[Rfam]
A member of the RNA family "RybB RNA" from Morganella morganii, 79 nucleotides long. The literature on the family includes a 2001 paper in Genes Dev by Wassarman et al., "Identification of novel small RNAs using comparative genomics and microarrays". Rfam classes the family as a small RNA.

RNA sequence: ACUGCUUUUCUUUGAAUAUCCCCAAGAUUGAGGAAGCCCGAUAGUCACCAAUUUGGUUUUAACUAUCGGGUUUUUUAUU
Numbered sequence: 001a002c003u004g005c006u007u008u009u010c011u012u013u014g015a016a017u018a019u020c021c022c023c024a025a026g027a028u029u030g031a032g033g034a035a036g037c038c039c040g041a042u043a044g045u046c047a048c049c050a051a052u053u054u055g056g057u058u059u060u061a062a063c064u065a066u067c068g069g070g071u072u073u074u075u076u077a078u079u
Stems, first nucleotide, its partner, number of pairs: 034072001036071010

This ncRNA was identified in a large scale screen of E. coli. NCBI's taxonomy places the organism under Bacteria, Gammaproteobacteria, Morganella, Morganella morganii, Morganella morganii subsp. morganii.